A member of the RNA family "SAM-I/IV (S-adenosyl methionine) riboswitch aptamer" from Pseudohalioglobus lutimaris, 104 nucleotides long. Rfam links the family to the GO terms S-adenosylmethionine metabolic process and regulation of gene expression. Pairs were carried over by alignment from the consensus structure, which is taken from published work. The family has 417 seed sequences and 567 matches in Rfam 15.1. The source organism's lineage runs through Bacteria, Pseudomonadota, Gammaproteobacteria, Cellvibrionales and Pseudohalioglobus.

RNA sequence: CACCAGCAUCAAGAGAGGGCGUGCGCCCCGCCAACCUGCCUACCUGGGCAAGGUGGUUGACUCCUCGGAGUGAUGUGGCCUUACAGGCAACCAAUCAGGUUUUC
Numbered sequence: 001c002a003c004c005a006g007c008a009u010c011a012a013g014a015g016a017g018g019g020c021g022u023g024c025g026c027c028c029c030g031c032c033a034a035c036c037u038g039c040c041u042a043c044c045u046g047g048g049c050a051a052g053g054u055g056g057u058u059g060a061c062u063c064c065u066c067g068g069a070g071u072g073a074u075g076u077g078g079c080c081u082u083a084c085a086g087g088c089a090a091c092c093a094a095u096c097a098g099g100u101u102u103u104c
Stems, first nucleotide, its partner, number of pairs: 006076005015029001017028004030057003035053003038049003042100005078088004